[Rfam]
RNA: Small nucleolar RNA SNORA1
Organism: Ursus americanus
RNA sequence: AGCCUCAUUCUAGAUGAAAAUGGACACAGAUGUUUGUGGUGUGCACAGAUGGUUAAUGUGGCUACAUCGAGACACAGGUUAUGCUUCCAUUGUUGCAGGGGCGACAAUGAGACCUGUAACAUUU
Numbered sequence: 001a002g003c004c005u006c007a008u009u010c011u012a013g014a015u016g017a018a019a020a021u022g023g024a025c026a027c028a029g030a031u032g033u034u035u036g037u038g039g040u041g042u043g044c045a046c047a048g049a050u051g052g053u054u055a056a057u058g059u060g061g062c063u064a065c066a067u068c069g070a071g072a073c074a075c076a077g078g079u080u081a082u083g084c085u086u087c088c089a090u091u092g093u094u095g096c097a098g099g100g101g102c103g104a105c106a107a108u109g110a111g112a113c114c115u116g117u118a119a120c121a122u123u124u
Stems, first nucleotide, its partner, number of pairs: 002062003006058003021045002024042004074117005088103001090101002